RNA sequence: CCAGGGGCUUCCGCCCCUGGCUAUUAACGGUCGCCCCCUUGGGGCU
Numbered sequence: 001c002c003a004g005g006g007g008c009u010u011c012c013g014c015c016c017c018u019g020g021c022u023a024u025u026a027a028c029g030g031u032c033g034c035c036c037c038c039u040u041g042g043g044g045c046u
Base pairs, nucleotide, nucleotide: 001020002019003018004017005016006015007014008013033045034044035043036042037041

The record is a 46-nucleotide RNA sequence from Bremerella alba, which matches "Acido-Lenti-1 RNA" in Rfam.
It is annotated as a small RNA.
NCBI's taxonomy places the organism under Bacteria, Pseudomonadati, Planctomycetota, Pirellulaceae, Bremerella.
A search with the family's covariance model found it, with a score of 43 bits.